This 111-nucleotide RNA sequence belongs to the Rfam family "TPP riboswitch aptamer (THI element)".

[Rfam]
RNA sequence: UAGAGUUCGCACGGGUGCUGAGACCAACCUCAUUGGAGGUUCUCGGCUGAGAUAUCACCGUCGGAACCUGAACAGGGUAAUGCCUGCGAAGGAAGCGAACUGAAGAUGCUA
Numbered sequence: 001u002a003g004a005g006u007u008c009g010c011a012c013g014g015g016u017g018c019u020g021a022g023a024c025c026a027a028c029c030u031c032a033u034u035g036g037a038g039g040u041u042c043u044c045g046g047c048u049g050a051g052a053u054a055u056c057a058c059c060g061u062c063g064g065a066a067c068c069u070g071a072a073c074a075g076g077g078u079a080a081u082g083c084c085u086g087c088g089a090a091g092g093a094a095g096c097g098a099a100c101u102g103a104a105g106a107u108g109c110u111a
Stems, first nucleotide, its partner, number of pairs: 006099005011061004017047007067092003073086004